[Rfam]
RNA: dinG RNA
RNA sequence: AAUGAUACUUCUGCCGAAAGCAAGCUCGCCGAGAGGCGGGAUGUGUUGUUUAAGACGGAAAGAAUGUCUAGUUGCAGCACAU
Numbered sequence: 001a002a003u004g005a006u007a008c009u010u011c012u013g014c015c016g017a018a019a020g021c022a023a024g025c026u027c028g029c030c031g032a033g034a035g036g037c038g039g040g041a042u043g044u045g046u047u048g049u050u051u052a053a054g055a056c057g058g059a060a061a062g063a064a065u066g067u068c069u070a071g072u073u074g075c076a077g078c079a080c081a082u
Stems, first nucleotide, its partner, number of pairs: 011024002013021002025040006041082006048075002053069004